[Rfam]
RNA: Mammalian CPEB3 ribozyme
RNA sequence: AUAUAUUUAUUGGGGGUCAUUGUAGAAGCGUGCUCGUCGCGACCCCUGCCAGCCCUUUUCAGAGCUGGGAGAUAAGAC
Numbered sequence: 001a002u003a004u005a006u007u008u009a010u011u012g013g014g015g016g017u018c019a020u021u022g023u024a025g026a027a028g029c030g031u032g033c034u035c036g037u038c039g040c041g042a043c044c045c046c047u048g049c050c051a052g053c054c055c056u057u058u059u060c061a062g063a064g065c066u067g068g069g070a071g072a073u074a075a076g077a078c
Stems, first nucleotide, its partner, number of pairs: 013046006023076001026073001028040003050067004055062002